The record is a 268-nucleotide RNA from Sporormia fimetaria, which matches "Fungal signal recognition particle RNA" in Rfam.
On this family, see Wild et al., Curr Opin Struct Biol 2002: "Towards the structure of the mammalian signal recognition particle".
The family's consensus secondary structure is taken from published work.
NCBI's taxonomy places the organism under Eukaryota, Ascomycota, saccharomyceta, Sporormia, Sporormia fimetaria.
[Rfam]
RNA sequence: UACCUGUAACGGGUCUUCGUCAGAAGGUCUAUCGUAAUCCAUAUUGUCACUUCCACUUUUACGCCUCUGCUGAGAGCCCAGUUCGAGUCCGGUGGUGUCCAAUUUCCACUCAUUUAGGUAACUAAUGAUGCUGGAUGGACCUAAGCAAUGAAUACUACUGUCGAGGGAAGCAAUUCUGCAGACGCGUAUUCACCAUCGGACGGCGGCGCUGGAAUACUCUUGCGGAGGUUGGAAGGGAUGGCGUGGGCUGGUAUGGCCGACUGACAUU
Numbered sequence: 001u002a003c004c005u006g007u008a009a010c011g012g013g014u015c016u017u018c019g020u021c022a023g024a025a026g027g028u029c030u031a032u033c034g035u036a037a038u039c040c041a042u043a044u045u046g047u048c049a050c051u052u053c054c055a056c057u058u059u060u061a062c063g064c065c066u067c068u069g070c071u072g073a074g075a076g077c078c079c080a081g082u083u084c085g086a087g088u089c090c091g092g093u094g095g096u097g098u099c100c101a102a103u104u105u106c107c108a109c110u111c112a113u114u115u116a117g118g119u120a121a122c123u124a125a126u127g128a129u130g131c132u133g134g135a136u137g138g139a140c141c142u143a144a145g146c147a148a149u150g151a152a153u154a155c156u157a158c159u160g161u162c163g164a165g166g167g168a169a170g171c172a173a174u175u176c177u178g179c180a181g182a183c184g185c186g187u188a189u190u191c192a193c194c195a196u197c198g199g200a201c202g203g204c205g206g207c208g209c210u211g212g213a214a215u216a217c218u219c220u221u222g223c224g225g226a227g228g229u230u231g232g233a234a235g236g237g238a239u240g241g242c243g244u245g246g247g248c249u250g251g252u253a254u255g256g257c258c259g260a261c262u263g264a265c266a267u268u
Stems, first nucleotide, its partner, number of pairs: 002014003019265005027258001029256004034252002037249001038247003045240004050235005065227002068225001071222006078212005083206003087201009097140001099138003104135003107130002110128005116123002141145001149192007159184004167176003